[Rfam]
Background
This 143-nucleotide RNA from Halanaerobium salsuginis belongs to the Rfam family "PyrR binding site". From the family's description: This family represents the PyrR binding site and terminator structure. This RNA structure is found upstream of a variety of genes involved in pyrimidine biosynthesis and transport. The alignment also includes a portion of the antiterminator structure. The base pairs follow the family's consensus structure, which is taken from published work.

RNA sequence: UUUUCCUUUAAAUUAGCCCAGUGAGGCUGAUAAGGAGUUUAUUAGUAGUCAGGUUUAGAUUUAAAUUAGUUAACUAAUUUAAAUUAGAUUACCUAAUAUAUUUUUUAACUCUCUGUCAGUUUAACUGGCAGAGAGUUUUUUGU
Numbered sequence: 001u002u003u004u005c006c007u008u009u010a011a012a013u014u015a016g017c018c019c020a021g022u023g024a025g026g027c028u029g030a031u032a033a034g035g036a037g038u039u040u041a042u043u044a045g046u047a048g049u050c051a052g053g054u055u056u057a058g059a060u061u062u063a064a065a066u067u068a069g070u071u072a073a074c075u076a077a078u079u080u081a082a083a084u085u086a087g088a089u090u091a092c093c094u095a096a097u098a099u100a101u102u103u104u105u106u107a108a109c110u111c112u113c114u115g116u117c118a119g120u121u122u123a124a125c126u127g128g129c130a131g132a133g134a135g136u137u138u139u140u141u142g143u
Stems, first nucleotide, its partner, number of pairs: 003037006013030006056087001058085012107137013